[Rfam]
This 188-nucleotide RNA sequence from Ambrosiozyma monospora belongs to the Rfam family "Small nucleolar RNA snR34". Gene Ontology terms of the family: nucleolus and RNA processing. NCBI's taxonomy places the organism under Eukaryota, Pichiomycetes, Pichiales, Pichiaceae, Ambrosiozyma. By type it is an H/ACA-box small nucleolar RNA.

RNA sequence: AAUCAAAAAAUAUAAAAACAGGAGAUAUUUGCCACGGCGGAUUAAUGCAUAUUGUCAAGUUAUAUCCGUUGCCAUAUUUCUCAUAAGAUUUAUGUUUUCUUCUCCGAGAUUAGUUUGCCUUUUCCCUAUAGGAAGUUCAUUCUCCGUGCCUUAGAUGGAGUUUGGAUGUCGAAUUGUGGGAUACAUUU
Number, nucleotide and partner (000 for none) at each position: 001a000002a000003u000004c000005a000006a000007a000008a000009a000010a000011u000012a000013u000014a000015a000016a000017a000018a000019c000020a000021g000022g080023a079024g078025a077026u000027a000028u000029u000030u000031g000032c000033c000034a000035c000036g070037g069038c068039g067040g066041a065042u064043u062044a061045a000046u000047g060048c059049a000050u057051a000052u000053u000054g000055u000056c000057a050058a000059g048060u047061u044062a043063u000064a042065u041066c040067c039068g038069u037070u036071g000072c000073c000074a000075u000076a000077u025078u024079u023080c022081u000082c000083a000084u000085a000086a000087g000088a000089u000090u000091u000092a000093u000094g000095u000096u000097u000098u000099c000100u000101u000102c000103u000104c000105c000106g000107a000108g000109a000110u000111u000112a000113g000114u179115u178116u000117g000118c176119c000120u000121u000122u000123u000124c000125c000126c000127u000128a000129u000130a000131g000132g000133a000134a000135g167136u166137u165138c164139a000140u000141u000142c160143u159144c158145c157146g000147u000148g156149c000150c154151u000152u000153a000154g150155a000156u148157g145158g144159a143160g142161u000162u000163u000164g138165g137166a136167u135168g000169u000170c000171g000172a000173a000174u000175u000176g118177u000178g115179g114180g000181a000182u000183a000184c000185a000186u000187u000188u000